[Rfam]
RNA sequence: GAUUGUAAUUUCUUCUCUACAAUCGCGGCUG
Numbered sequence: 001g002a003u004u005g006u007a008a009u010u011u012c013u014u015c016u017c018u019a020c021a022a023u024c025g026c027g028g029c030u031g
Base pairs, nucleotide, nucleotide: 001024002023003022004021005020006019007018
Shown here is a 31-nucleotide RNA, a member of the family "S4-Bacteroidia ribosomal protein leader". Rfam's curators put it in the seed alignment. A reference for the family is Eckert and Weinberg (2020), "Discovery of 20 novel ribosomal leader candidates in bacteria and archaea", BMC Microbiol. Pairs were carried over by alignment from the consensus structure, which is taken from published work. The family is grouped with related families in Rfam's "Ribosomal Protein S4 Leader clan".